A member of the RNA family "Small nucleolar RNA SNORA5" from Liparis tanakae, 137 nucleotides long. About the family: ACA5 is a member of the H/ACA class of snoRNA that guide the sites of modification of uridines to pseudouridines. The family is grouped with related families in Rfam's "SNORA5 clan". Rfam classes the family as an H/ACA-box small nucleolar RNA. The match comes from Rfam's covariance-model search (72 bits). Rfam 15.1 lists 2,226 matches to the family in 629 species. The source organism's lineage runs through Eukaryota, Teleostomi, Ctenosquamata, Percomorphaceae and Liparis.

RNA sequence: GGCAGCCGUGUCAAAUUCAGUGCUUCCCCCUCAGUGGAUGCCACUGGCCGAAAUGGCUGCCACAGUGACGGUGUAGUCCAUGGGCCCCACGGCGCUCCAUCAUGGCCACUGGGGAUAAAUAUGUACUACACACAGAC
Numbered sequence: 001g002g003c004a005g006c007c008g009u010g011u012c013a014a015a016u017u018c019a020g021u022g023c024u025u026c027c028c029c030c031u032c033a034g035u036g037g038a039u040g041c042c043a044c045u046g047g048c049c050g051a052a053a054u055g056g057c058u059g060c061c062a063c064a065g066u067g068a069c070g071g072u073g074u075a076g077u078c079c080a081u082g083g084g085c086c087c088c089a090c091g092g093c094g095c096u097c098c099a100u101c102a103u104g105g106c107c108a109c110u111g112g113g114g115a116u117a118a119a120u121a122u123g124u125a126c127u128a129c130a131c132a133c134a135g136a137c
Stems, first nucleotide, its partner, number of pairs: 002060004018046005023040001025038003073129005078123001085114005